[Rfam]
About this RNA: The family of this 119-nucleotide RNA sequence from Otolemur garnettii is "U4atac minor spliceosomal RNA". The source organism's lineage runs through Eukaryota, Teleostomi, Boreoeutheria, Galagidae and Otolemur. A reference for the family is Lorkovic et al. (2005), "Evolutionary conservation of minor U12-type spliceosome between plants and humans", RNA.
RNA sequence: ACUAUCCUUUUCUUGGGGCUGUGCUACUGUCCAAUGAGCGCAUAGUAAGGGCAGUACUGCUAACAACUAACAUGCUCGCAUCAGGAGCUUUGCUUUAUAUUGGUGCAAUUUUUGGAAAA
Numbered sequence: 001a002c003u004a005u006c007c008u009u010u011u012c013u014u015g016g017g018g019c020u021g022u023g024c025u026a027c028u029g030u031c032c033a034a035u036g037a038g039c040g041c042a043u044a045g046u047a048a049g050g051g052c053a054g055u056a057c058u059g060c061u062a063a064c065a066a067c068u069a070a071c072a073u074g075c076u077c078g079c080a081u082c083a084g085g086a087g088c089u090u091u092g093c094u095u096u097a098u099a100u101u102g103g104u105g106c107a108a109u110u111u112u113u114g115g116a117a118a119a
Stems, first nucleotide, its partner, number of pairs: 006018004021060003026055007038046002078106006084096005
U4atac is an essential component of the minor U12-type spliceosome complex which is required for removal of the rarer class of eukaryotic introns (AT-AC, U12-type). The match comes from Rfam's covariance-model search (93 bits). It is annotated as a spliceosomal small nuclear RNA.